Glycine riboswitch aptamer: a 111-nucleotide sequence from Marinomonas pollencensis. The organism belongs to Marinomonas, within Bacteria.
RNA sequence: AUAUUGCCAUCUGGAGAGAGGUUACAUUUCGUUAGUAGCCCGCCGAAGGAGCAAGCCAGCGGUCAGGUCCGUCUGGUUAAACUCUCAGGAACAAAGGACAGGGGGAGAGGC
Numbered sequence: 001a002u003a004u005u006g007c008c009a010u011c012u013g014g015a016g017a018g019a020g021g022u023u024a025c026a027u028u029u030c031g032u033u034a035g036u037a038g039c040c041c042g043c044c045g046a047a048g049g050a051g052c053a054a055g056c057c058a059g060c061g062g063u064c065a066g067g068u069c070c071g072u073c074u075g076g077u078u079a080a081a082c083u084c085u086c087a088g089g090a091a092c093a094a095a096g097g098a099c100a101g102g103g104g105g106a107g108a109g110g111c
Stems, first nucleotide, its partner, number of pairs: 007105002010102004020040006043089002045086002049084003055077005